[Rfam]
RNA sequence: GGCGUAUUUUGCCUUGGCGGAACUCGACCGCCGGUCGAAGCCAUGAUCGCCUUCAUCGACGAUCAUCGGGGCACGUACAGGGUCGAGCCGAUCUGCCGGGUGCUGCCGAUCGCCCCG
Numbered sequence: 001g002g003c004g005u006a007u008u009u010u011g012c013c014u015u016g017g018c019g020g021a022a023c024u025c026g027a028c029c030g031c032c033g034g035u036c037g038a039a040g041c042c043a044u045g046a047u048c049g050c051c052u053u054c055a056u057c058g059a060c061g062a063u064c065a066u067c068g069g070g071g072c073a074c075g076u077a078c079a080g081g082g083u084c085g086a087g088c089c090g091a092u093c094u095g096c097c098g099g100g101u102g103c104u105g106c107c108g109a110u111c112g113c114c115c116c117g
Base pairs, nucleotide, nucleotide: 016032017031018030019029020028078117080115081114082113089112090111092109093108095106096105098103
RNA: ALIL pseudoknot